[Rfam]
RNA sequence: CCCGGGAGUCGGGCGGACGUGGUCGUCGCCAACCCGGUCAGAUCUGGAAGGAAGCAGCCGUAACGAUUUCGCUACGGGUCGUUCCGGCUCCCACCCUC
Numbered sequence: 001c002c003c004g005g006g007a008g009u010c011g012g013g014c015g016g017a018c019g020u021g022g023u024c025g026u027c028g029c030c031a032a033c034c035c036g037g038u039c040a041g042a043u044c045u046g047g048a049a050g051g052a053a054g055c056a057g058c059c060g061u062a063a064c065g066a067u068u069u070c071g072c073u074a075c076g077g078g079u080c081g082u083u084c085c086g087g088c089u090c091c092c093a094c095c096c097u098c
Stems, first nucleotide, its partner, number of pairs: 004092005011084005018076006025067004035060004043052003
Rfam assigns this 98-nucleotide RNA from Stakelama tenebrarum to the family "Bacterial small signal recognition particle RNA". The signal recognition particle (SRP) is a universally conserved ribonucleoprotein involved in the co-translational targeting of proteins to membranes. The family's RNA type in Rfam is non-coding RNA gene. A reference for the family is Righetti et al. (2016), "Temperature-responsive in vitro RNA structurome of Yersinia pseudotuberculosis", Proc Natl Acad Sci U S A. The match comes from Rfam's covariance-model search (53 bits). Its Rfam clan is "SRP clan".